RNA sequence: CGGUGUGAGGAGCUCACACGUCUUGCAGAGUGAUGUCGGAAAGCGAUGCAAUGCGUCUGAGCUCCGUACACAGU
Numbered sequence: 001c002g003g004u005g006u007g008a009g010g011a012g013c014u015c016a017c018a019c020g021u022c023u024u025g026c027a028g029a030g031u032g033a034u035g036u037c038g039g040a041a042a043g044c045g046a047u048g049c050a051a052u053g054c055g056u057c058u059g060a061g062c063u064c065c066g067u068a069c070a071c072a073g074u
Base pairs, nucleotide, nucleotide: 003071004070005069006068007067009065010064011063012062013061014060015059016058018056019055020054021053023051024050025049026048027047
Shown here is a 74-nucleotide RNA from Ornithorhynchus anatinus, a member of the family "mir-1421 microRNA precursor family".
Its family is annotated with miRNA-mediated post-transcriptional gene silencing and RISC complex in the Gene Ontology.
Taxonomically the source falls in Ornithorhynchus (Eukaryota, Deuterostomia, Craniata, Prototheria).